[Rfam]
RNA sequence: AAGGUGGCCUAUGCCACGGCCAUGGACUGGUUCAUCGCCGUCUGCUACGCCUUC
Numbered sequence: 001a002a003g004g005u006g007g008c009c010u011a012u013g014c015c016a017c018g019g020c021c022a023u024g025g026a027c028u029g030g031u032u033c034a035u036c037g038c039c040g041u042c043u044g045c046u047a048c049g050c051c052u053u054c
Base pairs, nucleotide, nucleotide: 002053003052006051007050008049010047011046013045014044016041017040018039019038020037022035023034024033025032026031

Shown here is a 54-nucleotide RNA from Ficedula albicollis, a member of the family "Editing element of GABA-3 exon 9". By type it is a cis-regulatory element. On this family, see Ohlson et al., RNA 2007: "Editing modifies the GABA(A) receptor subunit alpha3".